[Rfam]
RNA sequence: GAUUGUGAAUGAUGAGAAAGUGAAAUUUACAGUUAUCCCUGUCUGAGCAAACAGUGCUGAUUUUCUAGAUCUCUGACACUAAU
Numbered sequence: 001g002a003u004u005g006u007g008a009a010u011g012a013u014g015a016g017a018a019a020g021u022g023a024a025a026u027u028u029a030c031a032g033u034u035a036u037c038c039c040u041g042u043c044u045g046a047g048c049a050a051a052c053a054g055u056g057c058u059g060a061u062u063u064u065c066u067a068g069a070u071c072u073c074u075g076a077c078a079c080u081a082a083u
Stems, first nucleotide, its partner, number of pairs: 001083001003081001005079003

The record is an 83-nucleotide RNA sequence from Papaver nudicaule, which matches "Small nucleolar RNA R38" in Rfam. The family's consensus secondary structure was predicted with PFOLD. For this family Rfam cites "Identification of 10 novel snoRNA gene clusters from Arabidopsis thaliana" (Qu et al., Nucleic Acids Res, 2001). From the family's description: snoR38 is a C/D box small nucleolar RNA conserved across yeast, human, Arabidopsis and rice. It is encoded in the intron of elongation factor-1 gamma in both pombe and cerevisiae. snoR38 guides the methylation of 2'-O-ribose sites in 28S rRNA. It is annotated as a C/D-box small nucleolar RNA. Rfam 15.1 lists 2,295 matches to the family in 1,305 species.